[Rfam]
RNA sequence: AGCAUUUGAGGUGGUCAAUUUCGUGGCAGCCCCACGCCGAUGGUAACGACAAGGGCUUUCGCCCUGGGAGAUGCAGGAGAACGCCACGCCUGCCAAAUGCU
Numbered sequence: 001a002g003c004a005u006u007u008g009a010g011g012u013g014g015u016c017a018a019u020u021u022c023g024u025g026g027c028a029g030c031c032c033c034a035c036g037c038c039g040a041u042g043g044u045a046a047c048g049a050c051a052a053g054g055g056c057u058u059u060c061g062c063c064c065u066g067g068g069a070g071a072u073g074c075a076g077g078a079g080a081a082c083g084c085c086a087c088g089c090c091u092g093c094c095a096a097a098u099g100c101u
Base pairs, nucleotide, nucleotide: 001101002100003099004098005097006096007095008094011033013031014030015029023087024086025085026084027083035068036056037055038054073093074092075091076090077089
RNA: skipping-rope RNA